Description: This 120-nucleotide RNA sequence from Thrips palmi belongs to the Rfam family "U4atac minor spliceosomal RNA". NCBI's taxonomy places the organism under Eukaryota, Ecdysozoa, Paraneoptera, Thripidae, Thrips. Pairs were carried over by alignment from the consensus structure, which is taken from published work. Rfam 15.1 lists 1,648 matches to the family in 818 species.
RNA sequence: CGCGUCCUUGUCACUGGGGAGCAUUAUGUCCAAUGAUCGUAUUGAGAGGGCAUAGUUGCUGACACCAAUGAUCUAAUUCCACGCGUCGGGUCGAUACGGCACGGCGCAAUUUUUGGAAGC
Numbered sequence: 001c002g003c004g005u006c007c008u009u010g011u012c013a014c015u016g017g018g019g020a021g022c023a024u025u026a027u028g029u030c031c032a033a034u035g036a037u038c039g040u041a042u043u044g045a046g047a048g049g050g051c052a053u054a055g056u057u058g059c060u061g062a063c064a065c066c067a068a069u070g071a072u073c074u075a076a077u078u079c080c081a082c083g084c085g086u087c088g089g090g091u092c093g094a095u096a097c098g099g100c101a102c103g104g105c106g107c108a109a110u111u112u113u114u115g116g117a118a119g120c
Stems, first nucleotide, its partner, number of pairs: 005020005021059003025054007037045002083107006091099003